[Rfam]
RNA sequence: ACGAAAGAAUUACAAUUAUAUAUGUAUAAGCCCAUAAUAUGGUUGGGCGUAUCUACCAGCUACCGAUAAUAGUUGACUACGACAUGGAUUGCCGUGGUC
Numbered sequence: 001a002c003g004a005a006a007g008a009a010u011u012a013c014a015a016u017u018a019u020a021u022a023u024g025u026a027u028a029a030g031c032c033c034a035u036a037a038u039a040u041g042g043u044u045g046g047g048c049g050u051a052u053c054u055a056c057c058a059g060c061u062a063c064c065g066a067u068a069a070u071a072g073u074u075g076a077c078u079a080c081g082a083c084a085u086g087g088a089u090u091g092c093c094g095u096g097g098u099c
Base pairs, nucleotide, nucleotide: 018085019084021082023081024080025079026078030048031047032046033045034044057075058074059073060072061071062070